[Rfam]
RNA sequence: UUAGUUCUUCGGGGUUGGGUGAAAUUCCCUACCGGCGGUGAGUGGCCACACAAGUCCGCGACCCGUGUGAAAUAUUAGCACACGGCUGACUCGGUGUAAAUCCGAGACCGACAGUAAAGUCUGGAUGGAAGGAGACUAAC
Number, nucleotide and partner (000 for none) at each position: 001u000002u000003a000004g137005u000006u135007c134008u133009u132010c131011g000012g000013g000014g000015u000016u000017g029018g028019g027020u000021g000022a000023a000024a000025u000026u000027c019028c018029c017030u000031a120032c119033c110034g109035g059036c058037g057038g056039u000040g000041a000042g000043u000044g000045g000046c000047c000048a000049c000050a000051c000052a000053a000054g108055u107056c038057c037058g036059c035060g000061a000062c000063c085064c084065g000066u000067g000068u000069g000070a000071a000072a000073u000074a000075u000076u000077a000078g000079c000080a000081c000082a000083c000084g064085g063086c000087u000088g000089a000090c106091u105092c104093g103094g102095u000096g000097u000098a000099a000100a000101u000102c094103c093104g092105a091106g090107a055108c054109c034110g033111a000112c123113a122114g121115u000116a000117a000118a000119g032120u031121c114122u113123g112124g000125a000126u000127g000128g000129a000130a000131g010132g009133a008134g007135a006136c000137u004138a000139a000140c000
RNA: FMN riboswitch aptamer (RFN element)
Organism: Lachnospiraceae bacterium G11